RNA: mir-9193 microRNA precursor family
Organism: Cnephaeus nilssonii
RNA sequence: UUCGGGGGGCGGGGGUUCCCUUAGUCUGGAUUGCAAGAGGGUGCAGGCCAGGCCUAGAGACCCCACCAGUGCAUG
Numbered sequence: 001u002u003c004g005g006g007g008g009g010c011g012g013g014g015g016u017u018c019c020c021u022u023a024g025u026c027u028g029g030a031u032u033g034c035a036a037g038a039g040g041g042u043g044c045a046g047g048c049c050a051g052g053c054c055u056a057g058a059g060a061c062c063c064c065a066c067c068a069g070u071g072c073a074u075g
Base pairs, nucleotide, nucleotide: 004072006070009067012064013063014062015061017060018059020057021056024053025052026051028049029048031046032045033044034043035042